This 101-nucleotide sequence from Rosa chinensis belongs to the Rfam family "Small nucleolar RNA snoR99". By type it is an H/ACA-box small nucleolar RNA.
RNA sequence: GUGCAAUUGAUGUUAUACUUGUCCCAACAUUGAAUUCCAUUCUAUUAACUUUGUCAGCUGGGCUUCAUUACUUAUAGUUGAUUUUCAUGAACGGAACAUCA
Numbered sequence: 001g002u003g004c005a006a007u008u009g010a011u012g013u014u015a016u017a018c019u020u021g022u023c024c025c026a027a028c029a030u031u032g033a034a035u036u037c038c039a040u041u042c043u044a045u046u047a048a049c050u051u052u053g054u055c056a057g058c059u060g061g062g063c064u065u066c067a068u069u070a071c072u073u074a075u076a077g078u079u080g081a082u083u084u085u086c087a088u089g090a091a092c093g094g095a096a097c098a099u100c101a
Stems, first nucleotide, its partner, number of pairs: 036095003040091002053082008